Rfam assigns this 138-nucleotide RNA sequence from Parambassis ranga to the family "Small nucleolar RNA SNORA29". A reference for the family is Huttenhofer et al. (2001), "RNomics: an experimental approach that identifies 201 candidates for novel, small, non-messenger RNAs in mouse", EMBO J. It scores 60 bits against the family's covariance model. Gene Ontology terms of the family: nucleolus and RNA processing. The family's RNA type in Rfam is H/ACA-box small nucleolar RNA. Its Rfam clan is "SNORA20 clan". ACA29 is a member of the H/ACA class of snoRNA that guide the sites of modification of uridines to pseudouridines. The source organism's lineage runs through Eukaryota, Vertebrata, Neopterygii, Ambassidae and Parambassis. The base pairs follow the family's consensus structure, which was predicted with PFOLD.
[Rfam]
RNA sequence: AAUCCCAUGUCAGUCCCGUCCAUUCGCAUUUCAAUGAAUAGACGGCUAUGCUGAUGGGAUAUAAAAACACUGUCACGGUCUGAAGGUGUGGUCAGCUGACUGUGCGCCACACUAAAUAAGAUGACAGAAUAUGUGAAU
Numbered sequence: 001a002a003u004c005c006c007a008u009g010u011c012a013g014u015c016c017c018g019u020c021c022a023u024u025c026g027c028a029u030u031u032c033a034a035u036g037a038a039u040a041g042a043c044g045g046c047u048a049u050g051c052u053g054a055u056g057g058g059a060u061a062u063a064a065a066a067a068c069a070c071u072g073u074c075a076c077g078g079u080c081u082g083a084a085g086g087u088g089u090g091g092u093c094a095g096c097u098g099a100c101u102g103u104g105c106g107c108c109a110c111a112c113u114a115a116a117u118a119a120g121a122u123g124a125c126a127g128a129a130u131a132u133g134u135g136a137a138u
Stems, first nucleotide, its partner, number of pairs: 004058004016045004072125004090113003
Dot-bracket structure: ...((((........((((......................)))).........)))).............((((..............(((..................)))........)))).............